[Rfam]
RNA sequence: GAUCUGGCGCCUGAUACUUGCUUUAACCUAAGAAUCCUAAGUGGGAGGUGAGCAAAGUUUCAGGUGUGUAGAUCG
Number, nucleotide and partner (000 for none) at each position: 001g000002a073003u072004c071005u070006g069007g000008c066009g065010c064011c063012u062013g061014a060015u000016a058017c057018u056019u055020g000021c000022u052023u051024u050025a049026a000027c048028c047029u046030a000031a000032g000033a000034a000035u000036c000037c000038u000039a000040a000041g000042u000043g000044g000045g000046a029047g028048g027049u025050g024051a023052g022053c000054a000055a019056a018057g017058u016059u000060u014061c013062a012063g011064g010065u009066g008067u000068g000069u006070a005071g004072a003073u002074c000075g000